[Rfam]
Shown here is a 368-nucleotide sequence from Aliidiomarina sanyensis, a member of the family "Bacterial RNase P class A". It scores 325 bits against the family's covariance model. On this family, see Frank and Pace, Annu Rev Biochem 1998: "Ribonuclease P: unity and diversity in a tRNA processing ribozyme". The family is grouped with related families in Rfam's "RNaseP clan".
RNA sequence: GGAGUUGGCCGAGACAAUCGCUGCUUGCGUUAGCAAGGGGAGGAAAGUCCGGGCUCCAUAGGGCAGAGUGCCAGGUAACGCCUGGGCGGCGCGAGCCGACGACUAGUGCAACAGAGAGCAGACCGCCGAUGGCUUUUGUUUUCCUCGGAAAGCAGAAGAUCAGGUAAGGGUGAAAGGGUGCGGUAAGAGCGCACCGCGUGGCUGGUAACAGUUCAUGGCACGGUAAACUCCACUCGGAGCAAGACCAAAUAGGGAUCCAUGGGGUGGCCCGCCUCGGGUCCGGGUAGGUUGCUUGAGGCUGUGGGCGACUGCAGUCCUAGACGAAUGAUUGUCCUCGACAGAACCCGGCUUAAUGGCCAACUCCCCAU
Numbered sequence: 001g002g003a004g005u006u007g008g009c010c011g012a013g014a015c016a017a018u019c020g021c022u023g024c025u026u027g028c029g030u031u032a033g034c035a036a037g038g039g040g041a042g043g044a045a046a047g048u049c050c051g052g053g054c055u056c057c058a059u060a061g062g063g064c065a066g067a068g069u070g071c072c073a074g075g076u077a078a079c080g081c082c083u084g085g086g087c088g089g090c091g092c093g094a095g096c097c098g099a100c101g102a103c104u105a106g107u108g109c110a111a112c113a114g115a116g117a118g119c120a121g122a123c124c125g126c127c128g129a130u131g132g133c134u135u136u137u138g139u140u141u142u143c144c145u146c147g148g149a150a151a152g153c154a155g156a157a158g159a160u161c162a163g164g165u166a167a168g169g170g171u172g173a174a175a176g177g178g179u180g181c182g183g184u185a186a187g188a189g190c191g192c193a194c195c196g197c198g199u200g201g202c203u204g205g206u207a208a209c210a211g212u213u214c215a216u217g218g219c220a221c222g223g224u225a226a227a228c229u230c231c232a233c234u235c236g237g238a239g240c241a242a243g244a245c246c247a248a249a250u251a252g253g254g255a256u257c258c259a260u261g262g263g264g265u266g267g268c269c270c271g272c273c274u275c276g277g278g279u280c281c282g283g284g285u286a287g288g289u290u291g292c293u294u295g296a297g298g299c300u301g302u303g304g305g306c307g308a309c310u311g312c313a314g315u316c317c318u319a320g321a322c323g324a325a326u327g328a329u330u331g332u333c334c335u336c337g338a339c340a341g342a343a344c345c346c347g348g349c350u351u352a353a354u355g356g357c358c359a360a361c362u363c364c365c366c367a368u
Base pairs, nucleotide, nucleotide: 001364002363003362004361005360006359007358008357009356010355013333014332015331016330017329018328019327021040022039024037025036026035027034028033045351046350047349049348050347051346052345053344054239055238056237057236061270062269063268064267066235067234068233069232070231071085072084073083074082075081086100087098088097089096090095101230102229106228107227108224109223123169124168125165126164127163130162131161132160134158135157136156137155177195178194179193180192181191182190196219197217198216199215200214201213202211203210204209243290244289245288246287253281254280255279256278257277258276261275262274263273264272265271297316298315299314300313301312302311303310304309